[Rfam]
Overview: Shown here is a 102-nucleotide RNA from Physcomitrium patens, a member of the family "MIR533 microRNA precursor family". Pairs were carried over by alignment from the consensus structure, which was predicted with RNAalifold. It is one of the family's seed sequences.
RNA sequence: AUGGGGAGCUGGCCAGGCUGUGAGGGACGGAGCAGAGUUGGCUUGUGGCUCCUUGUGGCCCCCUCCAGCAGCUUCCUCCUCACAGUCUGCACAGCUCUCCGU
Number, nucleotide and partner (000 for none) at each position: 001a102002u101003g100004g099005g098006g097007a096008g095009c094010u093011g092012g000013c000014c089015a088016g087017g086018c085019u084020g083021u082022g081023a080024g079025g078026g077027a000028c000029g000030g000031a000032g000033c000034a000035g000036a000037g000038u000039u000040g000041g000042c000043u000044u000045g000046u000047g000048g000049c000050u000051c000052c000053u000054u000055g000056u000057g000058g000059c000060c000061c000062c000063c000064u000065c000066c000067a000068g000069c000070a000071g000072c000073u000074u000075c000076c000077u026078c025079c024080u023081c022082a021083c020084a019085g018086u017087c016088u015089g014090c000091a000092c011093a010094g009095c008096u007097c006098u005099c004100c003101g002102u001